[Rfam]
RNA: Alphaproteobacteria transfer-messenger RNA
RNA sequence: CCCCUUGCGCCCGCCCCGCCCCCGACCUACAUUCAGCCUGUCACGGGCAACCGUGACUAUGGCGAUAAACGCACCCGUAAUAAACGGAUCGGACCCGGGGGCGGUACCCGGCGGCUCCACCAGACUUUCCCCGCGUUGGGGGCGGAGGGGGCCGAAACAGGAUCGACGAACGUCUAAAGGGGCCAGCUUUUGCUCGGUGAGGUACCACCGUUAUCGGUCCGCAAGUGCAGUUGCCAACGACAACCGUGCUCCGAUGGCUCUGGCUGCGUAAGCAGUUCGAGUUAUCGAAACUUAAGCCCUUGCGCUUAGCCGCGUAAGGCGGGGUUCGCAGGUACCUGGCAACAGAAACCUGCACU
Numbered sequence: 001c002c003c004c005u006u007g008c009g010c011c012c013g014c015c016c017c018g019c020c021c022c023c024g025a026c027c028u029a030c031a032u033u034c035a036g037c038c039u040g041u042c043a044c045g046g047g048c049a050a051c052c053g054u055g056a057c058u059a060u061g062g063c064g065a066u067a068a069a070c071g072c073a074c075c076c077g078u079a080a081u082a083a084a085c086g087g088a089u090c091g092g093a094c095c096c097g098g099g100g101g102c103g104g105u106a107c108c109c110g111g112c113g114g115c116u117c118c119a120c121c122a123g124a125c126u127u128u129c130c131c132c133g134c135g136u137u138g139g140g141g142g143c144g145g146a147g148g149g150g151g152c153c154g155a156a157a158c159a160g161g162a163u164c165g166a167c168g169a170a171c172g173u174c175u176a177a178a179g180g181g182g183c184c185a186g187c188u189u190u191u192g193c194u195c196g197g198u199g200a201g202g203u204a205c206c207a208c209c210g211u212u213a214u215c216g217g218u219c220c221g222c223a224a225g226u227g228c229a230g231u232u233g234c235c236a237a238c239g240a241c242a243a244c245c246g247u248g249c250u251c252c253g254a255u256g257g258c259u260c261u262g263g264c265u266g267c268g269u270a271a272g273c274a275g276u277u278c279g280a281g282u283u284a285u286c287g288a289a290a291c292u293u294a295a296g297c298c299c300u301u302g303c304g305c306u307u308a309g310c311c312g313c314g315u316a317a318g319g320c321g322g323g324g325u326u327c328g329c330a331g332g333u334a335c336c337u338g339g340c341a342a343c344a345g346a347a348a349c350c351u352g353c354a355c356u
Stems, first nucleotide, its partner, number of pairs: 040057007061194005071187002074182003085172002089169003095111005112154007195210004201220002204218003322337004328353006